[Rfam]
Histone 3' UTR stem-loop: a 46-nucleotide sequence from Owenia fusiformis. The literature on the family includes a 1995 paper in Nucleic Acids Res by Williams and Marzluff, "The sequence of the stem and flanking sequences at the 3' end of histone mRNA are critical determinants for the binding of the stem-loop binding protein". The mRNAs of metazoan histone genes lack a poly-A tail. 3' end processing occurs at a site between a highly conserved stem-loop (modelled by this family) and a purine rich region around 20 nts downstream (the histone downstream element, or HDE). The match comes from Rfam's covariance-model search (37 bits). NCBI's taxonomy places the organism under Eukaryota, Eumetazoa, Annelida, Oweniidae, Owenia.
RNA sequence: AAAAUGGCCCUUUUAAGGGCCACCUAUCUAUACCAAAAGAGAAAUU
Numbered sequence: 001a002a003a004a005u006g007g008c009c010c011u012u013u014u015a016a017g018g019g020c021c022a023c024c025u026a027u028c029u030a031u032a033c034c035a036a037a038a039g040a041g042a043a044a045u046u
Stems, first nucleotide, its partner, number of pairs: 006021006